Small nucleolar RNA SNORA17: a 143-nucleotide RNA sequence from Anolis carolinensis. The base pairs follow the family's consensus structure, which was predicted with RNAalifold. Rfam classes the family as an H/ACA-box small nucleolar RNA. It is one of the family's seed sequences. Gene Ontology terms of the family: RNA processing and nucleolus. NCBI's taxonomy places the organism under Eukaryota, Craniata, Unidentata, Toxicofera, Anolis. The family is grouped with related families in Rfam's "SNORA17 clan".

RNA sequence: CUUGCCCCCAGAGGCGUUGCAGACACGGCUGUCGUGCCAUGUUUGCGUCAUUGGGUGGCAAAGAGGAAAGAAAGGCUAUGUCUACGCUCAGUGCUCUGAAAUGAAAAACCGUGGGCACUCAGAAUGAUUUGUAGCCUGACAAA
Numbered sequence: 001c002u003u004g005c006c007c008c009c010a011g012a013g014g015c016g017u018u019g020c021a022g023a024c025a026c027g028g029c030u031g032u033c034g035u036g037c038c039a040u041g042u043u044u045g046c047g048u049c050a051u052u053g054g055g056u057g058g059c060a061a062a063g064a065g066g067a068a069a070g071a072a073a074g075g076c077u078a079u080g081u082c083u084a085c086g087c088u089c090a091g092u093g094c095u096c097u098g099a100a101a102u103g104a105a106a107a108a109c110c111g112u113g114g115g116c117a118c119u120c121a122g123a124a125u126g127a128u129u130u131g132u133a134g135c136c137u138g139a140c141a142a143a
Base pairs, nucleotide, nucleotide: 002061003060004059005058006057007055008054009053010052011051013049014048015047019046020045021044022043024041025040027038028037029036070140073137074136075135076134077133078132079131085126086125088123089122091120092117093116094115095114096113